Record summary
The family of this 119-nucleotide sequence from Protea cynaroides is "U5 spliceosomal RNA".
RNA sequence: AGCCGUGUGGUGAGCACAAAGCGAACUAUUCUUUCGCCUUUUACUAAAGAAUACCGUGUGCUCGCCACUCAAAGCGGCAUACGCCUAUUUUUGAAGGGUCUCUCUCAUUUGAUUGGGAU
Numbered sequence: 001a002g003c004c005g006u007g008u009g010g011u012g013a014g015c016a017c018a019a020a021g022c023g024a025a026c027u028a029u030u031c032u033u034u035c036g037c038c039u040u041u042u043a044c045u046a047a048a049g050a051a052u053a054c055c056g057u058g059u060g061c062u063c064g065c066c067a068c069u070c071a072a073a074g075c076g077g078c079a080u081a082c083g084c085c086u087a088u089u090u091u092u093g094a095a096g097g098g099u100c101u102c103u104c105u106c107a108u109u110u111g112a113u114u115g116g117g118a119u
Stems, first nucleotide, its partner, number of pairs: 003077004008067011027053008098119005
For this family Rfam cites "The spliceosomal snRNAs of Caenorhabditis elegans" (Thomas et al., Nucleic Acids Res, 1990). The match comes from Rfam's covariance-model search (88 bits). About the family: U5 RNA is a component of both types of known spliceosome. The precise function of this molecule is unknown, though it is known that the 5' loop is required for splice site selection and p220 binding, and that both the 3' stem-loop and the Sm site are important for Sm protein binding and cap methylation. The organism belongs to Protea, within Eukaryota. Rfam classes the family as a spliceosomal small nuclear RNA.